[Rfam]
RNA sequence: GGACACGACUCUGGAGAAGCUCGCUGAAAAGAUGCGAGGGCCGAAGGUGUUAAAGGAUUUCACCCGUAGAAAUCCUGAAUCUCUCAGGCAAAAGGACAGGGCUGGCACU
Numbered sequence: 001g002g003a004c005a006c007g008a009c010u011c012u013g014g015a016g017a018a019g020c021u022c023g024c025u026g027a028a029a030a031g032a033u034g035c036g037a038g039g040g041c042c043g044a045a046g047g048u049g050u051u052a053a054a055g056g057a058u059u060u061c062a063c064c065c066g067u068a069g070a071a072a073u074c075c076u077g078a079a080u081c082u083c084u085c086a087g088g089c090a091a092a093a094g095g096a097c098a099g100g101g102c103u104g105g106c107a108c109u
Stems, first nucleotide, its partner, number of pairs: 006104002009101005020038004040089003043085002047083001049081001054076008
This 109-nucleotide RNA from Dialister sp. CAG:486 belongs to the Rfam family "Glycine riboswitch aptamer". The organism belongs to Dialister, within Bacteria.